The family of this 72-nucleotide RNA sequence is "Group II catalytic intron D1-D4-1". The pairing is the family consensus, mapped onto this sequence. Group II introns are found in rRNA, tRNA and mRNA of organelles in fungi, plants and protists, and also in mRNA in bacteria.
[Rfam]
RNA sequence: UAACCAUUAUUAUGAGGUAAUGCUGAACGUACAGAAGUCAGCCGAGGUCAUAGUAGCCGAGAGGCGAAGGAC
Numbered sequence: 001u002a003a004c005c006a007u008u009a010u011u012a013u014g015a016g017g018u019a020a021u022g023c024u025g026a027a028c029g030u031a032c033a034g035a036a037g038u039c040a041g042c043c044g045a046g047g048u049c050a051u052a053g054u055a056g057c058c059g060a061g062a063g064g065c066g067a068a069g070g071a072c
Stems, first nucleotide, its partner, number of pairs: 001025002005022007038045002047072003056065003
The family has 237 seed sequences and 2,508 matches in Rfam 15.1.